The record is an 87-nucleotide RNA sequence from Halopseudomonas laoshanensis, which matches "t44 RNA" in Rfam.
Rfam's curators write: This family consists of a number of bacterial RNA genes of between 135 and 170 bases in length.
The family's consensus secondary structure was predicted with LocARNA.
The source organism's lineage runs through Bacteria, Pseudomonadati, Pseudomonadota, Gammaproteobacteria and Halopseudomonas.
RNA sequence: CCAGGCUUAAACUGAAACCGCACACGUAUCGUCGCACUGUCUUGGGUGCCCUCCGGGGUUGGACAUUGGGAUACGUGGAGGCCCAAC
Dot-bracket structure: ......................((((((((....((.(((((.....((((....)))).))))).)).))))))))..........